This 99-nucleotide RNA from Aquimarina algicola belongs to the Rfam family "TPP riboswitch aptamer (THI element)".
RNA sequence: UAUAAACUUUAGGGGUGACCUUUUUAUAAUAAGGUCUGAGAAAUACCCUUUGAACCUGAUGCGGUUAGUACCGACGAAGGGAAAAGUCAAACUCAUAUC
Number, nucleotide and partner (000 for none) at each position: 001u000002a000003u000004a000005a000006a087007c086008u085009u084010u083011a049012g048013g047014g046015g000016u043017g036018a035019c034020c033021u032022u000023u000024u000025u000026a000027u000028a000029a000030u000031a000032a021033g020034g019035u018036c017037u000038g000039a000040g000041a000042a000043a016044u000045a000046c014047c013048c012049u011050u000051u000052g000053a000054a000055c080056c079057u078058g000059a000060u000061g000062c073063g072064g071065u000066u000067a000068g000069u000070a000071c064072c063073g062074a000075c000076g000077a000078a057079g056080g055081g000082a000083a010084a009085a008086g007087u006088c000089a000090a000091a000092c000093u000094c000095a000096u000097a000098u000099c000